RNA sequence: GGGUUCCGACCAGUUCAAUCAUCGGGGUUACAAACAGAGUUCUCGUAACUCAUUUUACCCUGUGGAAAGUCCCCGGAGAUAGGGCGGAAAGCGUCCCACCGUGGUAGGUGUAGGCCGGGUCGGCUGCGUAGGGGAGGAGACCUGCGCGCGGCCGUACCCGUAGCGUUGCUCAGAGCAAAGAGAAUAUUGAGAAGGAAUCCAUUCCUAACUAAAUGGGGCUUACUCGGUCCGGAACC
Numbered sequence: 001g002g003g004u005u006c007c008g009a010c011c012a013g014u015u016c017a018a019u020c021a022u023c024g025g026g027g028u029u030a031c032a033a034a035c036a037g038a039g040u041u042c043u044c045g046u047a048a049c050u051c052a053u054u055u056u057a058c059c060c061u062g063u064g065g066a067a068a069g070u071c072c073c074c075g076g077a078g079a080u081a082g083g084g085c086g087g088a089a090a091g092c093g094u095c096c097c098a099c100c101g102u103g104g105u106a107g108g109u110g111u112a113g114g115c116c117g118g119g120u121c122g123g124c125u126g127c128g129u130a131g132g133g134g135a136g137g138a139g140a141c142c143u144g145c146g147c148g149c150g151g152c153c154g155u156a157c158c159c160g161u162a163g164c165g166u167u168g169c170u171c172a173g174a175g176c177a178a179a180g181a182g183a184a185u186a187u188u189g190a191g192a193a194g195g196a197a198u199c200c201a202u203u204c205c206u207a208a209c210u211a212a213a214u215g216g217g218g219c220u221u222a223c224u225c226g227g228u229c230c231g232g233a234a235c236c
Stems, first nucleotide, its partner, number of pairs: 002236007009228003014191006023062006037051005067221003071218004083095004097110004113164001116160005123153001124151004135143003193206005

Rfam assigns this 236-nucleotide RNA from Spodoptera littoralis to the family "RNase MRP". Rfam classes the family as a ribozyme. Pairs were carried over by alignment from the consensus structure, which is taken from published work.